[Rfam]
A member of the RNA family "Small nucleolar RNA SNORA84" from Alligator sinensis, 135 nucleotides long. Lineage of the source: Eukaryota > Gnathostomata > Dipnotetrapodomorpha > Sauropsida > Alligator. It scores 121 bits against the family's covariance model. A reference for the family is Marker et al. (2002), "Experimental RNomics: identification of 140 candidates for small non-messenger RNAs in the plant Arabidopsis thaliana", Curr Biol. Rfam links the family to the GO terms nucleolus and RNA processing.
RNA sequence: GCCCUGUGGUUACUGGAUGCUGUUGCAUGGGUACAGUUCUCCAGUUAGUAGAAAUGGGCAAAAAGUAAUACUUCGAUUUGUGCAUGGAGUCUGUUACAUCUCGGCAGCCUCCAUAGCCCGGUCAUAGUUACACUU
Dot-bracket structure: ((((..((.(.((((((.(((((.........)))))..)))))).).)).....))))...........(...((((...((((((.(.(((((.......))))).).)))).))..))))...)........